The record is a 139-nucleotide RNA sequence, which matches "Small nucleolar RNA SNORA8" in Rfam. The family's consensus secondary structure was predicted with RNAfold. Rfam describes the family as follows. ACA8 is a member of the H/ACA class of snoRNA that guide the sites of modification of uridines to pseudouridines. By type it is an H/ACA-box small nucleolar RNA. Clan: SNORA8 clan.
RNA sequence: UGCACUGCAUGGUAUCUGCAUUCAGCAGUUUGUUCCUGCUGGGUGUUCAAAGAACAGUGCAAUAUAAAUUCAGUAUCUGGCAUCGUUGGUUUUCUUGGCUUUGUGCAAGUUAAGACCUGGUAUUUCUACUGAUACAGUA
Numbered sequence: 001u002g003c004a005c006u007g008c009a010u011g012g013u014a015u016c017u018g019c020a021u022u023c024a025g026c027a028g029u030u031u032g033u034u035c036c037u038g039c040u041g042g043g044u045g046u047u048c049a050a051a052g053a054a055c056a057g058u059g060c061a062a063u064a065u066a067a068a069u070u071c072a073g074u075a076u077c078u079g080g081c082a083u084c085g086u087u088g089g090u091u092u093u094c095u096u097g098g099c100u101u102u103g104u105g106c107a108a109g110u111u112a113a114g115a116c117c118u119g120g121u122a123u124u125u126c127u128a129c130u131g132a133u134a135c136a137g138u139a
Stems, first nucleotide, its partner, number of pairs: 002060006015053003018046011063128002066125004070120004080106004